[Rfam]
Background: A member of the RNA family "Acido-Lenti-1 RNA" from bacterium K02(2017), 46 nucleotides long. Rfam classes the family as a small RNA. Pairs were carried over by alignment from the consensus structure, which is taken from published work.
RNA sequence: CCUAGGGUUUACACCCUAGGCUAGGUAGUGCCGCUCCUUCGGAGCU
Number, nucleotide and partner (000 for none) at each position: 001c020002c019003u018004a017005g016006g015007g014008u013009u000010u000011a000012c000013a008014c007015c006016c005017u004018a003019g002020g001021c000022u000023a000024g000025g000026u000027a000028g000029u000030g000031c000032c000033g045034c044035u043036c042037c041038u000039u000040c000041g037042g036043a035044g034045c033046u000